[Rfam]
RNA sequence: CCCACCACUGCAUCUGAUCAGUUCCUUGUUGGAUGGUGCAAUCCAGUGGUGAGCUGAUAGUAGACCCUGGCUUAGGAAACAGGGUUGUUCUUCAUAUGGAUAACUGUGCCAAAAACAUGGGGACAGCC
Numbered sequence: 001c002c003c004a005c006c007a008c009u010g011c012a013u014c015u016g017a018u019c020a021g022u023u024c025c026u027u028g029u030u031g032g033a034u035g036g037u038g039c040a041a042u043c044c045a046g047u048g049g050u051g052a053g054c055u056g057a058u059a060g061u062a063g064a065c066c067c068u069g070g071c072u073u074a075g076g077a078a079a080c081a082g083g084g085u086u087g088u089u090c091u092u093c094a095u096a097u098g099g100a101u102a103a104c105u106g107u108g109c110c111a112a113a114a115a116c117a118u119g120g121g122g123a124c125a126g127c128c
Base pairs, nucleotide, nucleotide: 005049006048007047008046009045010044017037018036019035020034022031065121066120067119069118070116072114073113075110076109080106081105084104085103088100089099090098

Small nucleolar RNA SNORA65: a 128-nucleotide RNA from Carlito syrichta. Rfam links the family to the GO terms RNA processing and nucleolus. By type it is an H/ACA-box small nucleolar RNA. It scores 96 bits against the family's covariance model. About the family: U65 belongs to the H/ACA class of snoRNAs which are thought to guide the sites of modification of uridines to pseudouridines.